[Rfam]
RNA sequence: CCCUAACAAUCACAAUGGUGUGAUUGACUAAGCCAAGAUAGGAGAUAUACAUG
Numbered sequence: 001c002c003c004u005a006a007c008a009a010u011c012a013c014a015a016u017g018g019u020g021u022g023a024u025u026g027a028c029u030a031a032g033c034c035a036a037g038a039u040a041g042g043a044g045a046u047a048u049a050c051a052u053g
Stems, first nucleotide, its partner, number of pairs: 002042004007026005
Shown here is a 53-nucleotide sequence, a member of the family "Mu-gpT-DE RNA". The sequence is in the family's curated seed alignment. It is annotated as a small RNA.